About this RNA:
The record is an 80-nucleotide RNA from Blautia sp. OF03-15BH, which matches "ZMP/ZTP riboswitch aptamer (pfl RNA motif)" in Rfam.
RNA sequence: ACUUAAUUAUACGACUGACGGAAGUGGAAUUGACCACAGGGAGUAUAAGGAUAGAUGAGCCGACCGUCUGGGCAGAAGAA
Numbered sequence: 001a002c003u004u005a006a007u008u009a010u011a012c013g014a015c016u017g018a019c020g021g022a023a024g025u026g027g028a029a030u031u032g033a034c035c036a037c038a039g040g041g042a043g044u045a046u047a048a049g050g051a052u053a054g055a056u057g058a059g060c061c062g063a064c065c066g067u068c069u070g071g072g073c074a075g076a077a078g079a080a
Stems, first nucleotide, its partner, number of pairs: 004051001007048006015040002017068005024037004059073003
Taxonomically the source falls in Blautia (Bacteria, Bacillati, Bacillota, Lachnospirales).